[Rfam]
RNA: sroB RNA
RNA sequence: CAAGAACUCCAUGCUGCCGCGAUAAUUAAUAAAAAUGAAAUUCCUCUUUGACUGGCCAAUAGAAAUAUUGGCCAUUUUUUU
Numbered sequence: 001c002a003a004g005a006a007c008u009c010c011a012u013g014c015u016g017c018c019g020c021g022a023u024a025a026u027u028a029a030u031a032a033a034a035a036u037g038a039a040a041u042u043c044c045u046c047u048u049u050g051a052c053u054g055g056c057c058a059a060u061a062g063a064a065a066u067a068u069u070g071g072c073c074a075u076u077u078u079u080u081u
Stems, first nucleotide, its partner, number of pairs: 007019001010016002026033002053074009